[Rfam]
RNA: S-element
Organism: Agrobacterium albertimagni
RNA sequence: AGUCAAGAGUCUUUGGCACCGUUUUUGGUGAGCAGUUUUCUGUUGCCUUCAAGAAGGUGAAGAAAAAUG
Numbered sequence: 001a002g003u004c005a006a007g008a009g010u011c012u013u014u015g016g017c018a019c020c021g022u023u024u025u026u027g028g029u030g031a032g033c034a035g036u037u038u039u040c041u042g043u044u045g046c047c048u049u050c051a052a053g054a055a056g057g058u059g060a061a062g063a064a065a066a067a068u069g
Base pairs, nucleotide, nucleotide: 010064012062013061014060017059018058019057020056023055024054025053026052028050030048032046033045034044035043036042